[Rfam]
RNA sequence: GCAGGCUCACUCUGUUCUUUGCUGCUCACUCCAGCCUGGGACUUUUUCUGCCUGCUACAUGAACAUGCAGAACGGAACACGUGACUGGCUUGUUAAUAAGCUAGUGCCACCAUGUUUUGCCACAUUACU
Numbered sequence: 001g002c003a004g005g006c007u008c009a010c011u012c013u014g015u016u017c018u019u020u021g022c023u024g025c026u027c028a029c030u031c032c033a034g035c036c037u038g039g040g041a042c043u044u045u046u047u048c049u050g051c052c053u054g055c056u057a058c059a060u061g062a063a064c065a066u067g068c069a070g071a072a073c074g075g076a077a078c079a080c081g082u083g084a085c086u087g088g089c090u091u092g093u094u095a096a097u098a099a100g101c102u103a104g105u106g107c108c109a110c111c112a113u114g115u116u117u118u119g120c121c122a123c124a125u126u127a128c129u
Stems, first nucleotide, its partner, number of pairs: 001055006014042005022034003067120007074110001078106002082103002085100002

Annotation
Shown here is a 129-nucleotide sequence from Mola mola, a member of the family "Small nucleolar RNA SNORA77". From the family's description: ACA63 (SNORA77) is a member of the H/ACA class of snoRNAs that guide the sites of modification of uridines to pseudouridines. This snoRNA was identified by computational screening and its expression in mouse experimentally verified by Northern blot and primer extension analysis. ACA63 is proposed to guide the pseudouridylation of 18S rRNA U814. It is annotated as an H/ACA-box small nucleolar RNA. It scores 51 bits against the family's covariance model. For this family Rfam cites "A computational screen for mammalian pseudouridylation guide H/ACA RNAs" (Schattner et al., RNA, 2006). The source organism's lineage runs through Eukaryota, Craniata, Neopterygii, Molidae and Mola.